[Rfam]
RNA sequence: CUUCGCUUGACGGGGUGCCGGUAGAACCGGCUGAGAUGGCGCAGGGUGUCGAGACAACGGACGACACCGAGCGCUGGUCCCGUGGAACCUGAUCCGGCUAGCACCGGCGUAGGAAUCAAGCGGUGACCAGUG
Numbered sequence: 001c002u003u004c005g006c007u008u009g010a011c012g013g014g015g016u017g018c019c020g021g022u023a024g025a026a027c028c029g030g031c032u033g034a035g036a037u038g039g040c041g042c043a044g045g046g047u048g049u050c051g052a053g054a055c056a057a058c059g060g061a062c063g064a065c066a067c068c069g070a071g072c073g074c075u076g077g078u079c080c081c082g083u084g085g086a087a088c089c090u091g092a093u094c095c096g097g098c099u100a101g102c103a104c105c106g107g108c109g110u111a112g113g114a115a116u117c118a119a120g121c122g123g124u125g126a127c128c129a130g131u132g
Stems, first nucleotide, its partner, number of pairs: 006120005011082004016076001017031005038075005088113004094107004
A member of the RNA family "TPP riboswitch aptamer (THI element)" from Halomonas sp. THAF5a, 132 nucleotides long. The match comes from Rfam's covariance-model search (74 bits). Its family is annotated with thiamine pyrophosphate binding in the Gene Ontology. The source organism's lineage runs through Bacteria, Pseudomonadati, Pseudomonadota, Oceanospirillales and Halomonas.